[Rfam]
RNA sequence: CUCGUUCUUCGCGCGGGAGCUCGACCCGCGACUUCCGUGGUGAACGCGUUCAUCGACGCGCACCGGGCCCGGUUCGGGGCCGAGCCGAUCUGUCGCGUGCUGAGCGAGCACGGCGUCCAGGUCGCCCCG
Number, nucleotide and partner (000 for none) at each position: 001c000002u000003c000004g000005u000006u000007c000008u000009u000010c000011g000012c000013g029014c028015g027016g026017g025018a000019g000020c000021u000022c000023g000024a000025c017026c016027c015028g014029c013030g000031a000032c000033u000034u000035c000036c000037g000038u000039g000040g000041u000042g000043a000044a000045c000046g000047c000048g000049u000050u000051c000052a000053u000054c000055g000056a000057c000058g000059c000060g000061c000062a000063c000064c000065g000066g000067g000068c000069c000070c000071g000072g000073u000074u000075c129076g128077g127078g126079g125080c000081c000082g000083a000084g000085c000086c124087g123088a000089u121090c120091u119092g118093u000094c000095g000096c000097g000098u000099g000100c000101u000102g000103a000104g000105c000106g000107a000108g000109c000110a000111c000112g000113g000114c000115g000116u000117c000118c092119a091120g090121g089122u000123c087124g086125c079126c078127c077128c076129g075
The record is a 129-nucleotide RNA sequence from Phycicoccus avicenniae, which matches "ALIL pseudoknot" in Rfam. Rfam 15.1 lists 2,146 matches to the family in 1,098 species. On this family, see Mazauric et al., J Biol Chem 2008: "Apical loop-internal loop RNA pseudoknots: a new type of stimulator of -1 translational frameshifting in bacteria". Rfam links the family to the GO term positive regulation of translational frameshifting. The match comes from Rfam's covariance-model search (54 bits). Rfam classes the family as a cis-regulatory element.